The family of this 138-nucleotide RNA sequence from Streptomyces sp. DvalAA-14 is "gntR-DTE RNA". It scores 79 bits against the family's covariance model. Rfam classes the family as a small RNA.
RNA sequence: CGGGUGAUGUUCGUCGGCAGCGGUGCCGCGCGUCGGCGCGGUACGCACCGCACAUCGGCUCUGGACAACGCCCUCUUCUGGGGCGCCACUCGAUGUGAGCUGCCCUGCUGUGUGCCAGGCAGAGACAUGGCGCGCCCG
Numbered sequence: 001c002g003g004g005u006g007a008u009g010u011u012c013g014u015c016g017g018c019a020g021c022g023g024u025g026c027c028g029c030g031c032g033u034c035g036g037c038g039c040g041g042u043a044c045g046c047a048c049c050g051c052a053c054a055u056c057g058g059c060u061c062u063g064g065a066c067a068a069c070g071c072c073c074u075c076u077u078c079u080g081g082g083g084c085g086c087c088a089c090u091c092g093a094u095g096u097g098a099g100c101u102g103c104c105c106u107g108c109u110g111u112g113u114g115c116c117a118g119g120c121a122g123a124g125a126c127a128u129g130g131c132g133c134g135c136c137c138g
Stems, first nucleotide, its partner, number of pairs: 016104006051097008062088003069085005
Dot-bracket structure: ...............((((((.............................((((((((...(((....(((((.......)))))))).)))))))).))))))..................................